[Rfam]
RNA sequence: UUAUGGAGACACGGUCAUACAGAAAAUCAUUUGGCAUUUGAUUCAAAUGUUAACUGUAAGACUGUGUCUUUGUUUAUGUC
Numbered sequence: 001u002u003a004u005g006g007a008g009a010c011a012c013g014g015u016c017a018u019a020c021a022g023a024a025a026a027u028c029a030u031u032u033g034g035c036a037u038u039u040g041a042u043u044c045a046a047a048u049g050u051u052a053a054c055u056g057u058a059a060g061a062c063u064g065u066g067u068c069u070u071u072g073u074u075u076a077u078g079u080c
Stems, first nucleotide, its partner, number of pairs: 003073004008068009018058005025051003029048004
RNA: mir-999 microRNA precursor family